Shown here is a 133-nucleotide RNA from Castor canadensis, a member of the family "Small nucleolar RNA SNORA64/SNORA10 family". By type it is an H/ACA-box small nucleolar RNA. The source organism's lineage runs through Eukaryota, Eumetazoa, Chordata, Theria and Castor.
[Rfam]
RNA sequence: CCUCUCUCAGCUCCACUCAAUCACACAGGCUCAGUGUGUGCUUGGCGUAUUUUAAGGGAGAGAGAGGAAGGACCUCUAAUGCAUGGAAGACCUGCCCCAAAGUAGCUUUUCUGUUCCUAGGAGUGUGACAACU
Numbered sequence: 001c002c003u004c005u006c007u008c009a010g011c012u013c014c015a016c017u018c019a020a021u022c023a024c025a026c027a028g029g030c031u032c033a034g035u036g037u038g039u040g041c042u043u044g045g046c047g048u049a050u051u052u053u054a055a056g057g058g059a060g061a062g063a064g065a066g067g068a069a070g071g072a073c074c075u076c077u078a079a080u081g082c083a084u085g086g087a088a089g090a091c092c093u094g095c096c097c098c099a100a101a102g103u104a105g106c107u108u109u110u111c112u113g114u115u116c117c118u119a120g121g122a123g124u125g126u127g128a129c130a131a132c133u
Base pairs, nucleotide, nucleotide: 002066003065004064005063006062007061008060011058012057013056019043020042022040023039024038025037026036074123075122076120077119079118081116088112089111090110094106095105

It scores 89 bits against the family's covariance model.
Gene Ontology terms of the family: nucleolus and RNA processing.
The base pairs follow the family's consensus structure, which is taken from published work.
This family belongs to the H/ACA class of small nucleolar RNAs (snoRNAs) which act as guides in the the modification of uridines to pseudouridines. This family includes the human snoRNAs U64 and ACA10 and mouse MBI-29.
Clan: SNORA64 clan.